RNA: small nucleolar RNA snoR127
RNA sequence: CUGGAAUGAUGUUAAUUAGCCAAAUCAAACAAUAAUGUGCUCCAUGACGCAACCGACUUUAUCCGUUUGGAUCAUGUUGAUGACUCUCAUGUUGAAGCGCAUUUCUCUGAUGAUAAACAAAGAGAUUGGUUUUUCUAUUCCUGACCAGA
Numbered sequence: 001c002u003g004g005a006a007u008g009a010u011g012u013u014a015a016u017u018a019g020c021c022a023a024a025u026c027a028a029a030c031a032a033u034a035a036u037g038u039g040c041u042c043c044a045u046g047a048c049g050c051a052a053c054c055g056a057c058u059u060u061a062u063c064c065g066u067u068u069g070g071a072u073c074a075u076g077u078u079g080a081u082g083a084c085u086c087u088c089a090u091g092u093u094g095a096a097g098c099g100c101a102u103u104u105c106u107c108u109g110a111u112g113a114u115a116a117a118c119a120a121a122g123a124g125a126u127u128g129g130u131u132u133u134u135c136u137a138u139u140c141c142u143g144a145c146c147a148g149a
Base pairs, nucleotide, nucleotide: 001148002147003146004145